Record summary
The record is a 163-nucleotide RNA from Oribacterium parvum, which matches "Clostridiales-1 RNA" in Rfam. The family's RNA type in Rfam is small RNA. A search with the family's covariance model found it, with a score of 91 bits.
[Rfam]
RNA sequence: GUUUUACAGUGCCAUAAGUCCCCAUACCCAUUGCAAACUUGUUUGCAAGAGGGAAUGGGACUUGAUGGCACGCCCCUGCAUGAGCACGAAGAGACGAAAGUCUCGAGAGUGCGAAUGCAGGCAGGAAUCGAAAAAGCGCGAAGCGCUGACGAUUCCGUAAAGG
Numbered sequence: 001g002u003u004u005u006a007c008a009g010u011g012c013c014a015u016a017a018g019u020c021c022c023c024a025u026a027c028c029c030a031u032u033g034c035a036a037a038c039u040u041g042u043u044u045g046c047a048a049g050a051g052g053g054a055a056u057g058g059g060a061c062u063u064g065a066u067g068g069c070a071c072g073c074c075c076c077u078g079c080a081u082g083a084g085c086a087c088g089a090a091g092a093g094a095c096g097a098a099a100g101u102c103u104c105g106a107g108a109g110u111g112c113g114a115a116u117g118c119a120g121g122c123a124g125g126a127a128u129c130g131a132a133a134a135a136g137c138g139c140g141a142a143g144c145g146c147u148g149a150c151g152a153u154u155c156c157g158u159a160a161a162g163g
Base pairs, nucleotide, nucleotide: 003163004162005161010070011069012068013067016063017062018061019060020059022058023057024056025055027053028052029051031049032048033046034045035044036043037042075121076120077119078118079117080116081115084112085111086110087109091104092103093102094101095100124156125155126154127153128152129151130150136146137145138144139143